[Rfam]
RNA sequence: UAUGAGAGGAAACAAAUGAACGAAGUUCAUUUCUUGUUAAUGUUUCCGACGAAAUGCCGCUGACCGAAGGGAGGGGGCAACACAUAUU
Numbered sequence: 001u002a003u004g005a006g007a008g009g010a011a012a013c014a015a016a017u018g019a020a021c022g023a024a025g026u027u028c029a030u031u032u033c034u035u036g037u038u039a040a041u042g043u044u045u046c047c048g049a050c051g052a053a054a055u056g057c058c059g060c061u062g063a064c065c066g067a068a069g070g071g072a073g074g075g076g077g078c079a080a081c082a083c084a085u086a087u088u
Stems, first nucleotide, its partner, number of pairs: 008047006015031006056078003060074002064070002

The record is an 88-nucleotide RNA sequence from Eubacterium sp. CAG:161, which matches "GA-cis RNA" in Rfam. NCBI's taxonomy places the organism under Bacteria, Bacillati, Bacillota, Clostridia, Eubacterium. A search with the family's covariance model found it, with a score of 77 bits. Pairs were carried over by alignment from the consensus structure, which is taken from published work.